[Rfam]
The record is an 86-nucleotide sequence from Cohnella fermenti, which matches "c-di-GMP-I riboswitch aptamer" in Rfam. About the family: GEMM was predicted in a large-scale screen for bacterial structured RNA regulatory elements. Genes associated with GEMM are involved in a diverse array of functions, including chemotaxis regulation, signal transduction, secretion and chitin. NCBI's taxonomy places the organism under Bacteria, Bacillota, Bacilli, Paenibacillaceae, Cohnella. The family's consensus secondary structure is taken from published work. A reference for the family is Weinberg et al. (2007), "Identification of 22 candidate structured RNAs in bacteria using the CMfinder comparative genomics pipeline", Nucleic Acids Res.
RNA sequence: AACCGAUAAUCGCAAACCUUCCGAAAGGCAGGGACGCAAAACCUAUGGGCCUAAGGAAUUCGUUCUAUGGCAGCCGGGAUACCGAA
Numbered sequence: 001a002a003c004c005g006a007u008a009a010u011c012g013c014a015a016a017c018c019u020u021c022c023g024a025a026a027g028g029c030a031g032g033g034a035c036g037c038a039a040a041a042c043c044u045a046u047g048g049g050c051c052u053a054a055g056g057a058a059u060u061c062g063u064u065c066u067a068u069g070g071c072a073g074c075c076g077g078g079a080u081a082c083c084g085a086a
Stems, first nucleotide, its partner, number of pairs: 012037002017032003021028002040080001042078002046076003049071003056065003